[Rfam]
RNA sequence: GUAAUCUGAUUCCUAUGCAAAGCGUAUAAAUCUUUCGCCUUUUACUAAAGAUUUCCGUGUGUAGGGAUUAUCUGGUUCUUAUAUUUUUGUGCCUUUUUGAGGU
Number, nucleotide and partner (000 for none) at each position: 001g000002u000003a077004a076005u075006c074007u000008g000009a068010u067011u066012c065013c064014u063015a062016u061017g060018c059019a058020a000021a000022g000023c000024g000025u000026a000027u000028a054029a053030a052031u051032c050033u049034u048035u047036c000037g000038c000039c000040u000041u000042u000043u000044a000045c000046u000047a035048a034049a033050g032051a031052u030053u029054u028055c000056c000057g000058u019059g018060u017061g016062u015063a014064g013065g012066g011067a010068u009069u000070a000071u000072c000073u000074g006075g005076u004077u003078c000079u000080u000081a000082u000083a000084u000085u000086u000087u000088u000089g000090u000091g000092c000093c000094u000095u000096u000097u000098u000099g000100a000101g000102g000103u000